A member of the RNA family "msiK RNA" from Streptomyces chattanoogensis, 56 nucleotides long. The source organism's lineage runs through Bacteria, Bacillati, Actinomycetota, Streptomycetaceae and Streptomyces. The family's consensus secondary structure is taken from published work.

RNA sequence: ACACCACACCUUUACUCGGAUCGUCCGGCACGUUCCUGCCGGUGAAGGGACAUAUC
Numbered sequence: 001a002c003a004c005c006a007c008a009c010c011u012u013u014a015c016u017c018g019g020a021u022c023g024u025c026c027g028g029c030a031c032g033u034u035c036c037u038g039c040c041g042g043u044g045a046a047g048g049g050a051c052a053u054a055u056c
Stems, first nucleotide, its partner, number of pairs: 009048006025042006
Dot-bracket structure: ........((((((..........((((((......))))))))))))........